[Rfam]
RNA: c-di-AMP riboswitch aptamer (ydaO/yuaA leader)
Organism: Streptomyces sp. CB02488
RNA sequence: CGGAAUUCCGCACCCACUCACCGUGUGGCAGGAGCGGGGGACCCAGGUAAGCCGCCGACCGGAGUGAUCCGGCCGGCUCGGGGUGAAGUCGCGCCAGGCGCGGCCGGGCAUCUCCAGCCCGAACCCGACAGCUCACCUCGUAGGCGCCGGAGAGGAAAUUC
Number, nucleotide and partner (000 for none) at each position: 001c144002g000003g000004a000005a000006u033007u032008c031009c000010g000011c000012a000013c000014c000015c000016a000017c000018u000019c000020a000021c000022c000023g000024u000025g000026u000027g000028g000029c000030a000031g008032g007033a006034g141035c140036g139037g138038g137039g136040g000041a000042c000043c000044c080045a000046g000047g000048u000049a000050a000051g000052c000053c000054g000055c000056c000057g000058a000059c000060c000061g000062g000063a000064g000065u000066g000067a000068u000069c000070c000071g000072g000073c000074c000075g000076g000077c000078u000079c000080g044081g126082g125083g124084u000085g000086a000087a000088g000089u103090c102091g101092c100093g000094c000095c000096a000097g000098g000099c000100g092101c091102g090103g089104c000105c000106g120107g119108g118109c117110a000111u000112c000113u000114c000115c000116a000117g109118c108119c107120c106121g000122a000123a000124c083125c082126c081127g000128a000129c000130a000131g000132c000133u000134c000135a000136c039137c038138u037139c036140g035141u034142a000143g000144g001145c000146g000147c000148c000149g000150g000151a000152g000153a000154g000155g000156a000157a000158a000159u000160u000161c000